This 70-nucleotide RNA from Saccoglossus kowalevskii belongs to the Rfam family "mir-137 microRNA precursor family". Taxonomically the source falls in Saccoglossus (Eukaryota, Metazoa, Enteropneusta, Harrimaniidae). On this family, see Ruby et al., Genome Res 2007: "Evolution, biogenesis, expression, and target predictions of a substantially expanded set of Drosophila microRNAs". The family is grouped with related families in Rfam's "mir-137 clan". Gene Ontology terms of the family: RISC complex and miRNA-mediated post-transcriptional gene silencing.

[Rfam]
RNA sequence: GCCGGUGACGCGUAUUCUCGGGUUGAUAAUACAUACCUGAUGUUAUUGCUUGAGAAUACACGUAGCUGGU
Dot-bracket structure: (((((..(((.((((((((((((.(((((((((....)).))))))))))))))))))).)))..)))))